Record summary:
Shown here is a 111-nucleotide RNA sequence from Mediterraneibacter hominis, a member of the family "TPP riboswitch aptamer (THI element)". Taxonomically the source falls in Mediterraneibacter (Bacteria, Bacillati, Clostridia, Lachnospirales). The match comes from Rfam's covariance-model search (56 bits).
RNA sequence: UAAGAAAAAAAGGGGUGCUCGCGUAUAAAGCGGGCUGAGAGUAAGCUGAAUUGCUUUAACCCAUGACCUGAUUUGGAUAAUGCCAACGUAGGGAUAUACAGCAGAUGGACA
Numbered sequence: 001u002a003a004g005a006a007a008a009a010a011a012g013g014g015g016u017g018c019u020c021g022c023g024u025a026u027a028a029a030g031c032g033g034g035c036u037g038a039g040a041g042u043a044a045g046c047u048g049a050a051u052u053g054c055u056u057u058a059a060c061c062c063a064u065g066a067c068c069u070g071a072u073u074u075g076g077a078u079a080a081u082g083c084c085a086a087c088g089u090a091g092g093g094a095u096a097u098a099c100a101g102c103a104g105a106u107g108g109a110c111a
Base pairs, nucleotide, nucleotide: 008097010095012062013061014060017035018034019033020032021031043056044055045054046053067092068091069090070089073086074085075084076083